[Rfam]
RNA sequence: ACACUGUGCUAGGGGUGCCAGGUGCGGAGCACUAGGCUGAGAAAUGAUCUAAUCAUUAACCCUUCACCUGAUCUGGGUCAUGCCAGCGUAGGGAAGCGAAACGUUUUUUAA
Numbered sequence: 001a002c003a004c005u006g007u008g009c010u011a012g013g014g015g016u017g018c019c020a021g022g023u024g025c026g027g028a029g030c031a032c033u034a035g036g037c038u039g040a041g042a043a044a045u046g047a048u049c050u051a052a053u054c055a056u057u058a059a060c061c062c063u064u065c066a067c068c069u070g071a072u073c074u075g076g077g078u079c080a081u082g083c084c085a086g087c088g089u090a091g092g093g094a095a096g097c098g099a100a101a102c103g104u105u106u107u108u109u110a111a
Stems, first nucleotide, its partner, number of pairs: 007098004011063004017037003021033004044056005067092004073086004
RNA: TPP riboswitch aptamer (THI element)